RNA sequence: AAAUGCUUCUGGACACCCCUCAAACCAAGACCUAUAGGGUGUAUAAACCACGUCUUUCAUACCUAAGCCUGAGGGUGGCUUAGGAAUAGUAAAACCG
Numbered sequence: 001a002a003a004u005g006c007u008u009c010u011g012g013a014c015a016c017c018c019c020u021c022a023a024a025c026c027a028a029g030a031c032c033u034a035u036a037g038g039g040u041g042u043a044u045a046a047a048c049c050a051c052g053u054c055u056u057u058c059a060u061a062c063c064u065a066a067g068c069c070u071g072a073g074g075g076u077g078g079c080u081u082a083g084g085a086a087u088a089g090u091a092a093a094a095c096c097g
Stems, first nucleotide, its partner, number of pairs: 014041005020036001027056005062084007